[Rfam]
The family of this 54-nucleotide RNA from Laticauda laticaudata is "Editing element of GABA-3 exon 9". The family's RNA type in Rfam is cis-regulatory element.
RNA sequence: AAAGUGGCUUAUGCUACUGCGAUGGAUUGGUUUAUUGCUGUUUGCUAUGCCUUU
Numbered sequence: 001a002a003a004g005u006g007g008c009u010u011a012u013g014c015u016a017c018u019g020c021g022a023u024g025g026a027u028u029g030g031u032u033u034a035u036u037g038c039u040g041u042u043u044g045c046u047a048u049g050c051c052u053u054u
Base pairs, nucleotide, nucleotide: 001054002053003052006051007050008049010047011046013045014044016041017040019038020037022035023034024033025032026031